[Rfam]
RNA: Lysine riboswitch aptamer
RNA sequence: GGAAUAGGUAGAGGCGCACUUGCGAUGAGUAUGUUCCGACAGGUUACCAUUCCGCGAUGAUCGGAGCAGAAAGGCGUUCGUGCCGAAGAAGCUGUACCGGUGACACAGCUUCUGGGCAUAUUUCCAAACAGGGAUAUGACUGUCAUCGUUAUGAUGGAGUGCUAUCGGCGAU
Numbered sequence: 001g002g003a004a005u006a007g008g009u010a011g012a013g014g015c016g017c018a019c020u021u022g023c024g025a026u027g028a029g030u031a032u033g034u035u036c037c038g039a040c041a042g043g044u045u046a047c048c049a050u051u052c053c054g055c056g057a058u059g060a061u062c063g064g065a066g067c068a069g070a071a072a073g074g075c076g077u078u079c080g081u082g083c084c085g086a087a088g089a090a091g092c093u094g095u096a097c098c099g100g101u102g103a104c105a106c107a108g109c110u111u112c113u114g115g116g117c118a119u120a121u122u123u124c125c126a127a128a129c130a131g132g133g134a135u136a137u138g139a140c141u142g143u144c145a146u147c148g149u150u151a152u153g154a155u156g157g158a159g160u161g162c163u164a165u166c167g168g169c170g171a172u
Base pairs, nucleotide, nucleotide: 007166008165009164010163011162016083017082018081019080022077023076024075032068033067034066035065036064037063038062039061087113088112089111090110091109092108093107094106095105098102114141115140117138118137119136120135121134122133123132124131143157144156145155146154147153148152